[Rfam]
RNA sequence: AUACAUACAUACGUACGUACAUAUGUAUGUAUGUAUGUAUGUAUGUAUGUAUGUAUGUAUGCGUGCGUGCGUGCGUGCGUGCGUGCAUGCAUGCAUGCAUGCAUGUAUGUAUGUAUGUAUGUAUGUAUGUAUGUAUGUAUGUUAUGUAUGUACGUACAUACAUACAUACGUACAUACGUAUGCAUGUAUG
Numbered sequence: 001a002u003a004c005a006u007a008c009a010u011a012c013g014u015a016c017g018u019a020c021a022u023a024u025g026u027a028u029g030u031a032u033g034u035a036u037g038u039a040u041g042u043a044u045g046u047a048u049g050u051a052u053g054u055a056u057g058u059a060u061g062c063g064u065g066c067g068u069g070c071g072u073g074c075g076u077g078c079g080u081g082c083g084u085g086c087a088u089g090c091a092u093g094c095a096u097g098c099a100u101g102c103a104u105g106u107a108u109g110u111a112u113g114u115a116u117g118u119a120u121g122u123a124u125g126u127a128u129g130u131a132u133g134u135a136u137g138u139a140u141g142u143u144a145u146g147u148a149u150g151u152a153c154g155u156a157c158a159u160a161c162a163u164a165c166a167u168a169c170g171u172a173c174a175u176a177c178g179u180a181u182g183c184a185u186g187u188a189u190g
Stems, first nucleotide, its partner, number of pairs: 004190007014180003024166006032103004037098001039096001041094012061074005105116004119136006138160004143156004
RNA: Small nucleolar RNA ZL1
Organism: Ceratopteris richardii